[Rfam]
RNA sequence: GAAGUACGCCGGACCGCCGCUGGUGCUGGCCCGCAAGGGGUGACGAUCCGUCGUCAUGUGGAAACACCGCACUGGAGGAACGUCCGGACUGCACAGGGCAGCGCAGGAGCUAACGGCUCUCCACCGUGAGGUGAGGAUCAGAGCAACAGAGACGAGUCCGAUCGCCCAUCAAGGUAGCCGAGGUGUUCUAUGAAGUGCCGGCGAAAGCCGGCAAGGCAGAUGGCGCAAGCCAUCUGACCCAGGCGCAAGCCUGGCUUCAUAGCCACCCCGGUCGCCGGAGGCGACCGGGGUGAAACGGGCAAUCUCUGCGCGCAGCAAUACCAAGUAGGUCAACGUCGAGGCGGCCCGCUGAGUUGACGGGUAGGUAGCACCGAGCCGGGGAGCGAUUCCCGGCCCAGAUUAAUGGCGGUCACGCCGCAUCUGCCGCAAGGCCGGUGCGGUGCACAGAAUCCGGCUUACAGGCGUACUUCAUCC
Numbered sequence: 001g002a003a004g005u006a007c008g009c010c011g012g013a014c015c016g017c018c019g020c021u022g023g024u025g026c027u028g029g030c031c032c033g034c035a036a037g038g039g040g041u042g043a044c045g046a047u048c049c050g051u052c053g054u055c056a057u058g059u060g061g062a063a064a065c066a067c068c069g070c071a072c073u074g075g076a077g078g079a080a081c082g083u084c085c086g087g088a089c090u091g092c093a094c095a096g097g098g099c100a101g102c103g104c105a106g107g108a109g110c111u112a113a114c115g116g117c118u119c120u121c122c123a124c125c126g127u128g129a130g131g132u133g134a135g136g137a138u139c140a141g142a143g144c145a146a147c148a149g150a151g152a153c154g155a156g157u158c159c160g161a162u163c164g165c166c167c168a169u170c171a172a173g174g175u176a177g178c179c180g181a182g183g184u185g186u187u188c189u190a191u192g193a194a195g196u197g198c199c200g201g202c203g204a205a206a207g208c209c210g211g212c213a214a215g216g217c218a219g220a221u222g223g224c225g226c227a228a229g230c231c232a233u234c235u236g237a238c239c240c241a242g243g244c245g246c247a248a249g250c251c252u253g254g255c256u257u258c259a260u261a262g263c264c265a266c267c268c269c270g271g272u273c274g275c276c277g278g279a280g281g282c283g284a285c286c287g288g289g290g291u292g293a294a295a296c297g298g299g300c301a302a303u304c305u306c307u308g309c310g311c312g313c314a315g316c317a318a319u320a321c322c323a324a325g326u327a328g329g330u331c332a333a334c335g336u337c338g339a340g341g342c343g344g345c346c347c348g349c350u351g352a353g354u355u356g357a358c359g360g361g362u363a364g365g366u367a368g369c370a371c372c373g374a375g376c377c378g379g380g381g382a383g384c385g386a387u388u389c390c391c392g393g394c395c396c397a398g399a400u401u402a403a404u405g406g407c408g409g410u411c412a413c414g415c416c417g418c419a420u421c422u423g424c425c426g427c428a429a430g431g432c433c434g435g436u437g438c439g440g441u442g443c444a445c446a447g448a449a450u451c452c453g454g455c456u457u458a459c460a461g462g463c464g465u466a467c468u469u470c471a472u473c474c
Stems, first nucleotide, its partner, number of pairs: 001470010011459001012411007020075007028067001080457001082455001084454005089315004096347004101311005106120005121135001122133004136306002141304002143300002158174002160170003182267004268289001269287008319367004329358006340350003375394008

The record is a 474-nucleotide RNA sequence from Xylophilus rhododendri, which matches "Bacterial RNase P class A" in Rfam. Its family is annotated with dimeric ribonuclease P complex, tRNA processing and ribonuclease P activity in the Gene Ontology.